About this RNA:
The record is an 87-nucleotide RNA sequence from Macaca mulatta, which matches "mir-627 microRNA precursor family" in Rfam. It is one of the family's seed sequences. The family's consensus secondary structure was predicted with RNAalifold.
[Rfam]
RNA sequence: UACUUAUUACCGGUAGUGAGUCUGUAAGAAAAGAGGAGGUGGUGGUUUUCCUCCUCUUUUCUUAGAGACUCACUACCAGUAAUAAGA
Dot-bracket structure: ..(((((((..((((((((((((..((((((((((((((.((....)).))))))))))))))..))))))))))))..))))))).